Description:
A member of the RNA family "TPP riboswitch aptamer (THI element)" from Bacillus sp. 165, 101 nucleotides long.
[Rfam]
RNA sequence: AUUUUUCACUAGGGGUGCUGUAAGCUGAGAGGGAUGUAAGAUCCUAACCCUUAUGACCUGAUCUAGGUAAUGCUAGCGAAGGGAAGUGAUGAAGCAAGGAU
Numbered sequence: 001a002u003u004u005u006u007c008a009c010u011a012g013g014g015g016u017g018c019u020g021u022a023a024g025c026u027g028a029g030a031g032g033g034a035u036g037u038a039a040g041a042u043c044c045u046a047a048c049c050c051u052u053a054u055g056a057c058c059u060g061a062u063c064u065a066g067g068u069a070a071u072g073c074u075a076g077c078g079a080a081g082g083g084a085a086g087u088g089a090u091g092a093a094g095c096a097a098g099g100a101u
Base pairs, nucleotide, nucleotide: 006089007088008087009086010085011051012050013049014048017025018024019023032044033043034042035041057082058081059080063076064075065074066073